RNA sequence: CUAUCAUCCAGAAAGGUGGAGGGACUGGCCCUGAGAAGCCUUGGCAACCGUCAUUGCUCUAAUGAGCGGUGCCAAUUCCAUCCCGGCAUAAAGACCGGGAAUGAUGAUGG
Dot-bracket structure: ((((((((....(((((...(((..[[[)))......)))))((((.((.((((.......))))..))))))....]]].(((((........)))))...))))))))

The family of this 110-nucleotide sequence from Pelodictyon phaeoclathratiforme is "SAM riboswitch aptamer (S box leader)". The family has 457 seed sequences and 9,625 matches in Rfam 15.1. The SAM riboswitch is found upstream of a number of genes which code for proteins involved in methionine or cysteine biosynthesis in Gram-positive bacteria. Lineage of the source: Bacteria > Chlorobiota > Chlorobiaceae > Pelodictyon > Pelodictyon phaeoclathratiforme. Rfam links the family to the GO term regulation of gene expression. It is one of the family's seed sequences. For this family Rfam cites "Structure and folding of four putative kink turns identified in structured RNA species in a test of structural prediction rules" (Huang et al., Nucleic Acids Res, 2021). Pairs were carried over by alignment from the consensus structure, which is taken from published work.